[Rfam]
RNA sequence: CCUCGGGGACGACCUCGGGGACGACAUUGCUGACACCCGGGGACGACCCAG
Numbered sequence: 001c002c003u004c005g006g007g008g009a010c011g012a013c014c015u016c017g018g019g020g021a022c023g024a025c026a027u028u029g030c031u032g033a034c035a036c037c038c039g040g041g042g043a044c045g046a047c048c049c050a051g
Stems, first nucleotide, its partner, number of pairs: 001020008038051001040049003
RNA: Guanidine-II riboswitch aptamer (mini-ykkC)